[Rfam]
RNA sequence: UGGACAUUUAUUUUUAUUCAGUUUUUUCUUAAAGUGUAGAUAACUCUUUGUAAAUGUCCUAGCGAAAUACAGUAGCUUUCUGUUCACCCUUUGCAAGUUAAGAGGGUGGAUCCACUACUGACAUUU
Dot-bracket structure: .((((((((((........(((((((.(.......).))).))))....))))))))))..........((((((.............((((........))))..........))))))......
Shown here is a 126-nucleotide RNA sequence from Lynx pardinus, a member of the family "Small Cajal body specific RNA 24". Rfam classes the family as a small Cajal body RNA. scaRNAs are a specific class of small nuclear RNAs which localise to the Cajal bodies and guide the modification of RNA polymerase II transcribed spliceosomal RNAs U1, U2, U4, U5 and U12. ACA12 belongs to the H/ACA box class of guide RNAs as it has the predicted hairpin-hinge-hairpin-tail structure,the conserved H/ACA-box motifs and is found associated with GAR1. The literature on the family includes a 2002 paper in EMBO J by Darzacq et al., "Cajal body-specific small nuclear RNAs: a novel class of 2'-O-methylation and pseudouridylation guide RNAs".